[Rfam]
RNA: MIR9563 microRNA precursor family
RNA sequence: AGAAGUUAAGAAAUUGUCUCUUAACUUUUAACUAAAAAAGCUAAGAACCAGUUUUUAAAUAAGAGUUUUAAGAGUCGGUUCUUAGCUUUUGUAGUUAAAAGUUAAGAGACGGAUUCUUAUAUUCC
Numbered sequence: 001a002g003a004a005g006u007u008a009a010g011a012a013a014u015u016g017u018c019u020c021u022u023a024a025c026u027u028u029u030a031a032c033u034a035a036a037a038a039a040g041c042u043a044a045g046a047a048c049c050a051g052u053u054u055u056u057a058a059a060u061a062a063g064a065g066u067u068u069u070a071a072g073a074g075u076c077g078g079u080u081c082u083u084a085g086c087u088u089u090u091g092u093a094g095u096u097a098a099a100a101g102u103u104a105a106g107a108g109a110c111g112g113a114u115u116c117u118u119a120u121a122u123u124c125c
Stems, first nucleotide, its partner, number of pairs: 002124003007119006014112021036090004041085007